Small nucleolar RNA SNORA32: a 122-nucleotide sequence from Molossus molossus. Its family is annotated with RNA processing and nucleolus in the Gene Ontology. Lineage of the source: Eukaryota > Chordata > Dipnotetrapodomorpha > Laurasiatheria > Molossus. ACA32 is a member of the H/ACA class of snoRNA that guide the sites of modification of uridines to pseudouridines. Rfam classes the family as an H/ACA-box small nucleolar RNA.

[Rfam]
RNA sequence: UGGUCCUGACCAAGGCUUUCAGAAUGCAGUUUCUCAUUCGUCGUGGACAUGACCACAGACCAUUUUCCCACUAGGUUUUUUUUCCUGCUCUGUUGGUAAUGUGCAGCCUACUGGGAACAUUU
Numbered sequence: 001u002g003g004u005c006c007u008g009a010c011c012a013a014g015g016c017u018u019u020c021a022g023a024a025u026g027c028a029g030u031u032u033c034u035c036a037u038u039c040g041u042c043g044u045g046g047a048c049a050u051g052a053c054c055a056c057a058g059a060c061c062a063u064u065u066u067c068c069c070a071c072u073a074g075g076u077u078u079u080u081u082u083u084c085c086u087g088c089u090c091u092g093u094u095g096g097u098a099a100u101g102u103g104c105a106g107c108c109u110a111c112u113g114g115g116a117a118c119a120u121u122u
Stems, first nucleotide, its partner, number of pairs: 003053003007049001010046003026041002029038001067115004074108004086101002